[Rfam]
RNA sequence: AAGUGUUGAAGUAAGAGAGUGUGCCGGUAGGCAUUGUCUUAUGGAGCUUGCGAGAGGGGUUGUGCAGUGAAACCUCAAACCGGCGUAGGCUGGAAAGCCGAAAGAAAAUGCUCACA
Numbered sequence: 001a002a003g004u005g006u007u008g009a010a011g012u013a014a015g016a017g018a019g020u021g022u023g024c025c026g027g028u029a030g031g032c033a034u035u036g037u038c039u040u041a042u043g044g045a046g047c048u049u050g051c052g053a054g055a056g057g058g059g060u061u062g063u064g065c066a067g068u069g070a071a072a073c074c075u076c077a078a079a080c081c082g083g084c085g086u087a088g089g090c091u092g093g094a095a096a097g098c099c100g101a102a103a104g105a106a107a108a109u110g111c112u113c114a115c116a
Base pairs, nucleotide, nucleotide: 001049002048003047004046011042012041013040014039015038016037018035019034020033021032022031024083025082026081027080064111065110066109088099089098090097091096
The record is a 116-nucleotide sequence from Hungatella hathewayi, which matches "drum RNA" in Rfam. Lineage of the source: Bacteria > Lachnospirales > Lachnospiraceae > Hungatella > Hungatella hathewayi. Firmicutes, Bacteroidetes (1 example), Proteobacteria (2 examples), Spirochaetes (2 examples).